RNA sequence: UUGCUCGUGCAAAUGCACAAGUUAAAUAAACAGAACAAAUUAUAUUGGAAAGGCCGGCAGCAAUGCUGGCCUUUUUUUU
Numbered sequence: 001u002u003g004c005u006c007g008u009g010c011a012a013a014u015g016c017a018c019a020a021g022u023u024a025a026a027u028a029a030a031c032a033g034a035a036c037a038a039a040u041u042a043u044a045u046u047g048g049a050a051a052g053g054c055c056g057g058c059a060g061c062a063a064u065g066c067u068g069g070c071c072u073u074u075u076u077u078u079u
Stems, first nucleotide, its partner, number of pairs: 007018004051072009